The record is a 181-nucleotide RNA sequence from Oxalobacteraceae bacterium CAVE-383, which matches "Manganese Mn2+ riboswitch aptamer (yybP-ykoY)" in Rfam. It scores 51 bits against the family's covariance model. Rfam links the family to the GO term manganese ion binding. Taxonomically the source falls in Oxalobacteraceae (Bacteria, Pseudomonadati, Pseudomonadota, Betaproteobacteria).
RNA sequence: CACGCACUCUUUGGGGAGUAGCCAUCUUCCGAGCAAUUCGGAAGAGCCCGUGUCAACAUUCUCGACUAUUUCCAUAGUCGUGGCACCGGUAGCCAAUCUGGUAGGCGAGACCAACGACAUAUCCGCGUAUUCGGUCGGGCGCGCGGGUGCGUCGUUGAACCUUGCCUGAUCCGGAUGCUUU
Numbered sequence: 001c002a003c004g005c006a007c008u009c010u011u012u013g014g015g016g017a018g019u020a021g022c023c024a025u026c027u028u029c030c031g032a033g034c035a036a037u038u039c040g041g042a043a044g045a046g047c048c049c050g051u052g053u054c055a056a057c058a059u060u061c062u063c064g065a066c067u068a069u070u071u072c073c074a075u076a077g078u079c080g081u082g083g084c085a086c087c088g089g090u091a092g093c094c095a096a097u098c099u100g101g102u103a104g105g106c107g108a109g110a111c112c113a114a115c116g117a118c119a120u121a122u123c124c125g126c127g128u129a130u131u132c133g134g135u136c137g138g139g140c141g142c143g144c145g146g147g148u149g150c151g152u153c154g155u156u157g158a159a160c161c162u163u164g165c166c167u168g169a170u171c172c173g174g175a176u177g178c179u180u181u
Base pairs, nucleotide, nucleotide: 026044027043028042046090047089048088050086051085052084053083054082055081063080064079065078066077067076068075069074091180092179094177095176097174